[Rfam]
RNA sequence: GAACUCCUUACAACAAUUUAAUCAAUUCAAUGUUAUGAAAACCCUAGAGUUCUG
Numbered sequence: 001g002a003a004c005u006c007c008u009u010a011c012a013a014c015a016a017u018u019u020a021a022u023c024a025a026u027u028c029a030a031u032g033u034u035a036u037g038a039a040a041a042c043c044c045u046a047g048a049g050u051u052c053u054g
Stems, first nucleotide, its partner, number of pairs: 001052006
Notes: A member of the RNA family "Class I RNA from Dictyostelium" from Tieghemostelium lacteum, 54 nucleotides long. Rfam describes the family as follows. Dictyostelium Class I RNA was first reported for Aspegren et al. 2004 in Dictyostelium discoideum. The family's RNA type in Rfam is non-coding RNA gene. For this family Rfam cites "Novel non-coding RNAs in Dictyostelium discoideum and their expression during development" (Aspegren et al., Nucleic Acids Res, 2004). The source organism's lineage runs through Eukaryota, Amoebozoa, Evosea, Dictyosteliales and Tieghemostelium.